[Rfam]
RNA: pan motif
Organism: Rossellomorea aquimaris
RNA sequence: UGGGCAGUAUCGAAAGAACUGCACCCUUACAAGAGCAAGAAUCUCAAUACUGAAUAAUAUCUGCCUUGAUCCAAAUUGGACUGGGACAGAGGG
Numbered sequence: 001u002g003g004g005c006a007g008u009a010u011c012g013a014a015a016g017a018a019c020u021g022c023a024c025c026c027u028u029a030c031a032a033g034a035g036c037a038a039g040a041a042u043c044u045c046a047a048u049a050c051u052g053a054a055u056a057a058u059a060u061c062u063g064c065c066u067u068g069a070u071c072c073a074a075a076u077u078g079g080a081c082u083g084g085g086a087c088a089g090a091g092g093g
Stems, first nucleotide, its partner, number of pairs: 002025002004022005010017002061089003064085003068081001070080003